[Rfam]
RNA sequence: UGAAUCCGCGCGGGAGAGUCCGGGGCACCCUGUGCCCGGGACGCCGAAGGAGCAAGUUCCUCCCUUGAAUCUCUCAGGCCCCGUACCGCGCGGGCGAG
Numbered sequence: 001u002g003a004a005u006c007c008g009c010g011c012g013g014g015a016g017a018g019u020c021c022g023g024g025g026c027a028c029c030c031u032g033u034g035c036c037c038g039g040g041a042c043g044c045c046g047a048a049g050g051a052g053c054a055a056g057u058u059c060c061u062c063c064c065u066u067g068a069a070u071c072u073c074u075c076a077g078g079c080c081c082c083g084u085a086c087c088g089c090g091c092g093g094g095c096g097a098g
Base pairs, nucleotide, nucleotide: 006093007092008091009090010089011088012087013086020039021038022037023036043079044078045077046075047074050073051072052071056066